[Rfam]
RNA sequence: CACACGUGAAGUCUGGGGCUUUCCGGGAGAAAUCCGGUCGGUUCCACCCGGUGGCAGGUGAAAAUCCUGCUUCAAGCUUCGCGGAGGUUCAACCGGAAAAGGAGUUAC
Numbered sequence: 001c002a003c004a005c006g007u008g009a010a011g012u013c014u015g016g017g018g019c020u021u022u023c024c025g026g027g028a029g030a031a032a033u034c035c036g037g038u039c040g041g042u043u044c045c046a047c048c049c050g051g052u053g054g055c056a057g058g059u060g061a062a063a064a065u066c067c068u069g070c071u072u073c074a075a076g077c078u079u080c081g082c083g084g085a086g087g088u089u090c091a092a093c094c095g096g097a098a099a100a101g102g103a104g105u106u107a108c
Stems, first nucleotide, its partner, number of pairs: 001086001003084001005083007015045002023036001026034001053071006
rpsB sRNA: a 108-nucleotide RNA sequence from Phytoamicus setariae. The source organism's lineage runs through Bacteria, Pseudomonadota, Alphaproteobacteria, Rhizobiaceae and Phytoamicus. Rfam classes the family as a small RNA. On this family, see Meyer et al., BMC Genomics 2009: "Identification of candidate structured RNAs in the marine organism 'Candidatus Pelagibacter ubique'". The family has 4 seed sequences and 245 matches in Rfam 15.1. The base pairs follow the family's consensus structure, which is taken from published work. The match comes from Rfam's covariance-model search (49 bits).